[Rfam]
RNA: S4-Bacteroidia ribosomal protein leader
Nucleotides: 043
Base pairs, nucleotide, nucleotide: 001036002035003034004033005032006031007030
Number, partner (000 for none) and nucleotide at each position: 001036g002035a003034c004033c005032a006031u007030a008000a009000c010000u011000u012000u013000u014000u015000c016000g017000a018000u019000a020000c021000a022000c023000a024000c025000c026000u027000c028000u029000c030007u031006a032005u033004g034003g035002u036001c037000g038000c039000g040000g041000c042000u043000g